Annotation: The family of this 122-nucleotide RNA sequence from Urocitellus parryii is "Small nucleolar RNA SNORA70". Rfam links the family to the GO terms RNA processing and nucleolus. From the family's description: snoRNA U70 seems to be exclusive to mammals and is a member of the H/ACA class of snoRNA which contain H (ANANNA) and ACA box motifs. H/ACA box snoRNAs are involved in the conversion of uridines to pseudouridines (5-ribosyluracil) a constituent of structural RNAs (transfer, ribosomal, small nuclear, and small nucleolar). Taxonomically the source falls in Urocitellus (Eukaryota, Opisthokonta, Eutheria, Boreoeutheria). On this family, see Charette and Gray, IUBMB Life 2000: "Pseudouridine in RNA: what, where, how, and why". The family has 43 seed sequences and 5,173 matches in Rfam 15.1. By type it is an H/ACA-box small nucleolar RNA.
RNA sequence: CUGCACCUAAUUAAGCCGACUGGGUUACUUUAUUUGUGGUGGCCCAGUGUGCAGUGGCUGCAGACAGCAAUCUCCUAGCCUGUUGCUUGUAUGGGUUGCCCUAAGGGACCUUGGAGACAGCA
Numbered sequence: 001c002u003g004c005a006c007c008u009a010a011u012u013a014a015g016c017c018g019a020c021u022g023g024g025u026u027a028c029u030u031u032a033u034u035u036g037u038g039g040u041g042g043c044c045c046a047g048u049g050u051g052c053a054g055u056g057g058c059u060g061c062a063g064a065c066a067g068c069a070a071u072c073u074c075c076u077a078g079c080c081u082g083u084u085g086c087u088u089g090u091a092u093g094g095g096u097u098g099c100c101c102u103a104a105g106g107g108a109c110c111u112u113g114g115a116g117a118c119a120g121c122a
Stems, first nucleotide, its partner, number of pairs: 002053004019048004025042004076098006